[Rfam]
RNA sequence: AAAGGUCGUUUGACCAUGCCGAAGACAGCAGGUGUCCCAACCGGUUUUGUGAGGGAAGGACGUAAGCAUUGCAUAAGCGGAUCGCCUGCCGAGGAGAUGAGUUUGCGUUAAGAAGAAUUCUACCUCUCCGUCUUUGGAGGGGUUUUUUAUUCAAUAAG
Numbered sequence: 001a002a003a004g005g006u007c008g009u010u011u012g013a014c015c016a017u018g019c020c021g022a023a024g025a026c027a028g029c030a031g032g033u034g035u036c037c038c039a040a041c042c043g044g045u046u047u048u049g050u051g052a053g054g055g056a057a058g059g060a061c062g063u064a065a066g067c068a069u070u071g072c073a074u075a076a077g078c079g080g081a082u083c084g085c086c087u088g089c090c091g092a093g094g095a096g097a098u099g100a101g102u103u104u105g106c107g108u109u110a111a112g113a114a115g116a117a118u119u120c121u122a123c124c125u126c127u128c129c130g131u132c133u134u135u136g137g138a139g140g141g142g143u144u145u146u147u148u149a150u151u152c153a154a155u156a157a158g
Stems, first nucleotide, its partner, number of pairs: 028089006034061003122143009